[Rfam]
RNA sequence: CUUGGGCGAUCGCUGCCUCUCUGGGCCUGUGUCUUAGGCUCUGCACGCUCAACCGAGCAAAGCACACGGCCUGCAGAGAGCCAGCGCUCCGCUC
Numbered sequence: 001c002u003u004g005g006g007c008g009a010u011c012g013c014u015g016c017c018u019c020u021c022u023g024g025g026c027c028u029g030u031g032u033c034u035u036a037g038g039c040u041c042u043g044c045a046c047g048c049u050c051a052a053c054c055g056a057g058c059a060a061a062g063c064a065c066a067c068g069g070c071c072u073g074c075a076g077a078g079a080g081c082c083a084g085c086g087c088u089c090c091g092c093u094c
Base pairs, nucleotide, nucleotide: 005093006092007091008089009088011086013084014083015082017080018079019078020077021076022075023074024071025070026069027068028066029065030064031063033062034061035060038058039057040056041055
mir-330 microRNA precursor family: a 94-nucleotide RNA from Orycteropus afer.
NCBI's taxonomy places the organism under Eukaryota, Opisthokonta, Tetrapoda, Eutheria, Orycteropus afer.
Rfam links the family to the GO terms RISC complex and miRNA-mediated post-transcriptional gene silencing.
A reference for the family is Kim et al. (2004), "Identification of many microRNAs that copurify with polyribosomes in mammalian neurons", Proc Natl Acad Sci U S A.
The base pairs follow the family's consensus structure, which was predicted with RNAalifold.